Rfam assigns this 334-nucleotide RNA from Acetobacter nitrogenifigens to the family "Alphaproteobacteria transfer-messenger RNA".
Rfam's curators write: Bacterial tmRNA, also known as 10Sa RNA or SsrA, is named for its dual tRNA and mRNA-like properties.
It scores 230 bits against the family's covariance model.
The base pairs follow the family's consensus structure, which is taken from published work.
Gene Ontology term of the family: RNA catabolic process.
RNA sequence: GCGCUUGCGCACAGUGAAUCGGACGCCUAUAUGUCGCCGUGCAGGAGGGGCUUCGGCCCCUUGGCUAUGGCGAUAAACGGAACGUAGAAUAAGCGUUGUGGACCCGGGGGCGGUACCCGGCGUCUCCACCAUCUCCUCCAGCCUUUCGGGGCGGGGAAACAUGGGGACGAAACAGGCUCGACACGCGUGGUAAAACCGUUCCUUUUGCCCGGCAUUGUACCACCGUCAUCGGGCUAAAUCACAAGUGCCAACGAUAACUCUGAGGUGCUCGCUGUCGCUGCAUAAGCGAUAAGCGCGGUUCGGGAGGGCACCGGGCAACAGAAGCCCUCCCACU
Numbered sequence: 001g002c003g004c005u006u007g008c009g010c011a012c013a014g015u016g017a018a019u020c021g022g023a024c025g026c027c028u029a030u031a032u033g034u035c036g037c038c039g040u041g042c043a044g045g046a047g048g049g050g051c052u053u054c055g056g057c058c059c060c061u062u063g064g065c066u067a068u069g070g071c072g073a074u075a076a077a078c079g080g081a082a083c084g085u086a087g088a089a090u091a092a093g094c095g096u097u098g099u100g101g102a103c104c105c106g107g108g109g110g111c112g113g114u115a116c117c118c119g120g121c122g123u124c125u126c127c128a129c130c131a132u133c134u135c136c137u138c139c140a141g142c143c144u145u146u147c148g149g150g151g152c153g154g155g156g157a158a159a160c161a162u163g164g165g166g167a168c169g170a171a172a173c174a175g176g177c178u179c180g181a182c183a184c185g186c187g188u189g190g191u192a193a194a195a196c197c198g199u200u201c202c203u204u205u206u207g208c209c210c211g212g213c214a215u216u217g218u219a220c221c222a223c224c225g226u227c228a229u230c231g232g233g234c235u236a237a238a239u240c241a242c243a244a245g246u247g248c249c250a251a252c253g254a255u256a257a258c259u260c261u262g263a264g265g266u267g268c269u270c271g272c273u274g275u276c277g278c279u280g281c282a283u284a285a286g287c288g289a290u291a292a293g294c295g296c297g298g299u300u301c302g303g304g305a306g307g308g309c310a311c312c313g314g315g316c317a318a319c320a321g322a323a324g325c326c327c328u329c330c331c332a333c334u
Stems, first nucleotide, its partner, number of pairs: 041065002069209005079202006094187003098184003104120005121169007210225003215236001217234001220232002296313004303330006